RNA sequence: GGAUGUGAGUGCGAUCUGGCUGUGACAUCUGUCACCCCAUUGAUCACCAGGGUUGAUUUGUCUGAUCUGGGUGGCUGGGCAGGUGUGCCCUUCCUUCCUCACAGCUACAUGUGUGCUCCUCCUGAAACUGCAUACUCGGUCAAAGACAACGACCUUCCCUGAUAGAGGCAUAUCUUUCAUUGGUCAAGGGUAUAGUAGCUGCACUCACCCUCCCAGAACCUUCAAACAAUCUCAAGGCCCAUUUACAGGAGAACAUAGGGUAGUCAAGUUUCCAAGACUGCAGACACAUCUAAUUUAGGCACUGCAUGUGGCAGUAUCAGAAGGA
Numbered sequence: 001g002g003a004u005g006u007g008a009g010u011g012c013g014a015u016c017u018g019g020c021u022g023u024g025a026c027a028u029c030u031g032u033c034a035c036c037c038c039a040u041u042g043a044u045c046a047c048c049a050g051g052g053u054u055g056a057u058u059u060g061u062c063u064g065a066u067c068u069g070g071g072u073g074g075c076u077g078g079g080c081a082g083g084u085g086u087g088c089c090c091u092u093c094c095u096u097c098c099u100c101a102c103a104g105c106u107a108c109a110u111g112u113g114u115g116c117u118c119c120u121c122c123u124g125a126a127a128c129u130g131c132a133u134a135c136u137c138g139g140u141c142a143a144a145g146a147c148a149a150c151g152a153c154c155u156u157c158c159c160u161g162a163u164a165g166a167g168g169c170a171u172a173u174c175u176u177u178c179a180u181u182g183g184u185c186a187a188g189g190g191u192a193u194a195g196u197a198g199c200u201g202c203a204c205u206c207a208c209c210c211u212c213c214c215a216g217a218a219c220c221u222u223c224a225a226a227c228a229a230u231c232u233c234a235a236g237g238c239c240c241a242u243u244u245a246c247a248g249g250a251g252a253a254c255a256u257a258g259g260g261u262a263g264u265c266a267a268g269u270u271u272c273c274a275a276g277a278c279u280g281c282a283g284a285c286a287c288a289u290c291u292a293a294u295u296u297a298g299g300c301a302c303u304g305c306a307u308g309u310g311g312c313a314g315u316a317u318c319a320g321a322a323g324g325a
Stems, first nucleotide, its partner, number of pairs: 001108001003106001005102005011096001013093002018090002025086009035074002037070003042067004048060001117170001118168004122139004140162003149156001198269003204263002208260004220251004228244002294324001296321001299318001301315005
This 325-nucleotide RNA sequence from Todus mexicanus belongs to the Rfam family "7SK RNA". The source organism's lineage runs through Eukaryota, Sarcopterygii, Archelosauria, Saurischia and Todus. Rfam 15.1 lists 49,373 matches to the family in 668 species. Pairs were carried over by alignment from the consensus structure, which is taken from published work. Clan: 7SK clan. It scores 231 bits against the family's covariance model. It is annotated as a non-coding RNA gene.